Shown here is a 124-nucleotide RNA sequence from Balaenoptera musculus, a member of the family "Small nucleolar RNA SNORA40".
RNA sequence: GGCACUUGUGUUGCUUUUGUGUAAUUCGUGGACAAAGACUUACAGACAGAUGCAAAAAUAAAUCCUCCUUUGCAACCCAGAACUCAUUCUUCAGUGUGAGUUUUGAUACAGAAGAAGGAACAUG
Numbered sequence: 001g002g003c004a005c006u007u008g009u010g011u012u013g014c015u016u017u018u019g020u021g022u023a024a025u026u027c028g029u030g031g032a033c034a035a036a037g038a039c040u041u042a043c044a045g046a047c048a049g050a051u052g053c054a055a056a057a058a059u060a061a062a063u064c065c066u067c068c069u070u071u072g073c074a075a076c077c078c079a080g081a082a083c084u085c086a087u088u089c090u091u092c093a094g095u096g097u098g099a100g101u102u103u104u105g106a107u108a109c110a111g112a113a114g115a116a117g118g119a120a121c122a123u124g
Base pairs, nucleotide, nucleotide: 002053003052004051006049007048008047009046011044013039015037016036017035018034019033020032025030063120065118066117069114070113078105079104080103081102082101083100084099085098086097087096
It scores 98 bits against the family's covariance model. The snoRNA ACA 40 belongs to the H/ACA family of snoRNAs and guides the pseudouridylation of 28S rRNA subunit at position U4565. NB This family has a high threshold value to exclude a large number of closely related sequences that do not appear to have conserved H and ACA boxes, and may be pseudogenes. On this family, see Ofengand and Bakin, J Mol Biol 1997: "Mapping to nucleotide resolution of pseudouridine residues in large subunit ribosomal RNAs from representative eukaryotes, prokaryotes, archaebacteria, mitochondria and chloroplasts".